Rfam assigns this 252-nucleotide RNA sequence from Blastobotrys ciferrii to the family "RNase MRP". The organism belongs to Blastobotrys, within Eukaryota. By type it is a ribozyme. Rfam's curators write: RNase MRP is an enzymatically active ribonucleoprotein with two distinct roles in eukaryotes. In mitochondria it plays a direct role in the initiation of mitochondrial DNA replication. In the nucleus it is involved in precursor rRNA processing, where it cleaves the internal transcribed spacer 1 between 18S and 5.8S rRNAs.

RNA sequence: GGGUGUUUUCUGAGAAUUGCGAUCGAAGCAUACUUAAGACGAACUGCGGUUUGUCGUAUGGCUUUGGGGAAAGUCUCCGGUCGAAAAGAACCGAAAGGUUCUGGGUCGCAAUUGGCCUAGUCAAAUGGUUCGUCUUUCAUUUGAAAGACCGUUGACUACAGUGUUCGACGCUAAGAGGUGGCCUCUUAAACGAAAGUUAUCGCAAUUUACACUGUCAAGUGUAAACGCAAUGGGGCUUACUCCAGAUACACC
Numbered sequence: 001g002g003g004u005g006u007u008u009u010c011u012g013a014g015a016a017u018u019g020c021g022a023u024c025g026a027a028g029c030a031u032a033c034u035u036a037a038g039a040c041g042a043a044c045u046g047c048g049g050u051u052u053g054u055c056g057u058a059u060g061g062c063u064u065u066g067g068g069g070a071a072a073g074u075c076u077c078c079g080g081u082c083g084a085a086a087a088g089a090a091c092c093g094a095a096a097g098g099u100u101c102u103g104g105g106u107c108g109c110a111a112u113u114g115g116c117c118u119a120g121u122c123a124a125a126u127g128g129u130u131c132g133u134c135u136u137u138c139a140u141u142u143g144a145a146a147g148a149c150c151g152u153u154g155a156c157u158a159c160a161g162u163g164u165u166c167g168a169c170g171c172u173a174a175g176a177g178g179u180g181g182c183c184u185c186u187u188a189a190a191c192g193a194a195a196g197u198u199a200u201c202g203c204a205a206u207u208u209a210c211a212c213u214g215u216c217a218a219g220u221g222u223a224a225a226c227g228c229a230a231u232g233g234g235g236c237u238u239a240c241u242c243c244a245g246a247u248a249c250a251c252c
Stems, first nucleotide, its partner, number of pairs: 002252005009246004015207006023067007039054006071238003075235004089100004101120008122178001129173001132171002137168002149161001151159002209222005